[Rfam]
RNA sequence: GAACAUGAUGAAUAUUCUCUUUGGAAUCUCGUUCGUCUGAACUCCUGUUGAGAAAAGGAAUAGCUGACUUCA
Dot-bracket structure: ..........................(((((..((..........)).)))))...................
Numbered sequence: 001g002a003a004c005a006u007g008a009u010g011a012a013u014a015u016u017c018u019c020u021u022u023g024g025a026a027u028c029u030c031g032u033u034c035g036u037c038u039g040a041a042c043u044c045c046u047g048u049u050g051a052g053a054a055a056a057g058g059a060a061u062a063g064c065u066g067a068c069u070u071c072a
Stems, first nucleotide, its partner, number of pairs: 027053005034047002

Source information: Rfam assigns this 72-nucleotide sequence from Oncorhynchus kisutch to the family "Small nucleolar RNA SNORD30". The literature on the family includes a 1996 paper in Nature by Tycowski et al., "A mammalian gene with introns instead of exons generating stable RNA products". Gene Ontology terms of the family: RNA processing and nucleolus.